[Rfam]
The family of this 500-nucleotide RNA sequence from Hamadaea sp. is "Saccharopolyspora sRNA 350". The literature on the family includes a 2013 paper in PLoS One by Liu et al., "Prediction and characterization of small non-coding RNAs related to secondary metabolites in Saccharopolyspora erythraea". Rfam classes the family as an antisense RNA. The family's consensus secondary structure was predicted with RNAfold.
Nucleotides: 500
Stems, first nucleotide, its partner, number of pairs: 007383001009381004014376003018322002022318001025310002031305002036300001039299001041297002044294001046292001048227002051224002054221001056219003059105003069097001072095003076091005111216002114213001116211001120207002124203001126200001128198003134192002137190002144185001148182002151179002154176001155172002159168002229289002234284002237281003243276004248272001250271003254265001256263001324335003345373003350368002356364001385425005391419001393417003397412001401409001431470004437464004441459006471499002474494003480491001482489001
Number, partner (000 for none) and nucleotide at each position: 001000g002000a003000g004000u005000a006000u007383u008000c009381c010380c011379a012378g013000g014376u015375c016374a017000a018322g019321u020000c021000c022318g023000a024000u025310u026309c027000c028000a029000g030000g031305a032304g033000g034000a035000c036300c037000c038000g039299g040000u041297c042296g043000c044294c045000g046292a047000a048227g049226u050000a051224c052223u053000c054221g055000c056219c057218g058217u059105c060104g061103g062000c063000c064000a065000g066000c067000a068000c069097g070000c071000c072095g073094a074093g075000g076091a077090c078089g079088g080087c081000c082000u083000u084000g085000g086000c087080g088079c089078c090077g091076u092000a093074c094073u095072c096000c097069c098000c099000c100000a101000g102000c103061c104060c105059g106000a107000c108000c109000u110000u111216g112215u113000c114213g115000g116211c117000c118000u119000u120207g121206c122000c123000g124203u125000g126200g127000g128198c129197c130196a131000u132000c133000a134192g135191g136000u137190a138189g139000a140000g141000c142000u143000g144185g145000u146000c147000g148182g149181c150000g151179g152178g153000g154176g155172c156171g157000c158000c159168c160167g161000c162000c163000u164000c165000g166000a167160c168159g169000a170000u171156c172155g173000u174000g175000u176154c177000g178152c179151c180000g181149g182148c183000g184000g185144c186000g187000u188000a189138c190137u191135c192134c193000c194000g195000u196130u197129g198128g199000g200126c201000g202000a203124a204000g205000c206121g207120c208000c209000g210000c211116g212000a213114c214000a215112g216111c217058g218057c219056g220000u221054c222000c223052a224051g225000c226049g227048u228000c229289u230288c231000g232000a233000u234284g235283u236000c237281g238280u239279c240000g241000a242000a243276g244275u245274c246273g247000c248272g249000g250271a251270g252269c253000u254265g255000c256263g257000g258000c259000a260000g261000u262000u263256c264000u265254c266000g267000c268000a269252g270251c271250u272248c273246c274245g275244g276243c277000g278000g279239g280238a281237c282000c283235a284234c285000c286000c287000g288230g289229a290000c291000c292046u293000g294044g295000u296042c297041g298000c299039c300036g301000a302000c303000g304032u305031u306000g307000g308000u309026g310025a311000a312000g313000g314000u315000c316000a317000g318022c319000c320000g321019g322018c323000c324335g325334u326333c327000g328000c329000c330000g331000a332000c333326g334325g335324c336000a337000u338000a339000g340000g341000u342000g343000a344000g345373c346372c347371g348000c349000c350368g351367g352000u353000u354000c355000a356364c357000c358000c359000g360000g361000u362000a363000c364356g365000c366000c367351c368350c369000a370000c371347c372346g373345g374016u375015g376014a377000c378012c379011u380010g381009g382000a383007g384000c385425c386424a387423g388422g389421g390000c391419a392000g393417c394416a395415c396000c397412c398000g399000g400000a401409g402000c403000a404000g405000c406000c407000a408000g409401c410000g411000g412397g413000a414000g415395g416394u417393g418000a419391u420000c421389u422388c423387c424386u425385g426000c427000a428000u429000c430000u431470g432469c433468g434467g435000g436000a437464c438463g439462g440461a441459c442458u443457u444456g445455g446454u447000g448000g449000u450000c451000g452000u453000c454446g455445c456444c457443a458442g459441g460000u461440u462439c463438c464437g465000c466000g467434c468433c469432g470431c471499u472498g473000c474494g475493g476492u477000a478000c479000u480491c481000a482489g483000g484000c485000u486000c487000g488000a489482c490000c491480g492476g493475c494474c495000g496000u497000u498472c499471g500000g